[Rfam]
RNA sequence: AACGUGCUCCGGGGUCGGUGUGAAUCCGAACCGGCGGUAAAGUCCGCGAUCCCCACUGACGUGGGGGUGAUCCGGUGUAAUUCCGGAACCGACGGUGAUGCAGGGUGACCUGCUAGUCCGGAUGGGAGGCAGCACGAC
Numbered sequence: 001a002a003c004g005u006g007c008u009c010c011g012g013g014g015u016c017g018g019u020g021u022g023a024a025u026c027c028g029a030a031c032c033g034g035c036g037g038u039a040a041a042g043u044c045c046g047c048g049a050u051c052c053c054c055a056c057u058g059a060c061g062u063g064g065g066g067g068u069g070a071u072c073c074g075g076u077g078u079a080a081u082u083c084c085g086g087a088a089c090c091g092a093c094g095g096u097g098a099u100g101c102a103g104g105g106u107g108a109c110c111u112g113c114u115a116g117u118c119c120g121g122a123u124g125g126g127a128g129g130c131a132g133c134a135c136g137a138c
Stems, first nucleotide, its partner, number of pairs: 003136006009129002016028003032091002034047004042089002050067003071087005093120003